[Rfam]
The record is a 77-nucleotide RNA sequence from Orthoflavivirus yokoseense, which matches "No-known vector Flavivirus exoribonuclease-resistant RNA element" in Rfam. The sequence is in the family's curated seed alignment. The exoribonuclease-resistant RNA elements (xrRNA) are described throughout all groups of flaviviruses. Usually, each virus harbors two xrRNAs, xrRNA1 and xrRNA2, in the beginning of the 3' UTR. The formation of these stem-loops, especially xrRNA1, is vital to ensure resistance against XRN1 activity. The source organism's lineage runs through Viruses, Kitrinoviricota, Amarillovirales, Euflavivirus and Orthoflavivirus yokoseense. The family's consensus secondary structure was predicted with LocARNA. The family's RNA type in Rfam is cis-regulatory element.
RNA sequence: AAGUGUCAGGCCAAGAUUGAGAAAAUCUUGCCACAGCUUGGCAGACUGUGCAGCCUGCAGCCCUAGAGGGAGACUGA
Dot-bracket structure: (.((..(((((...((((.....)))).....((((.((....))))))...)))))..))..).............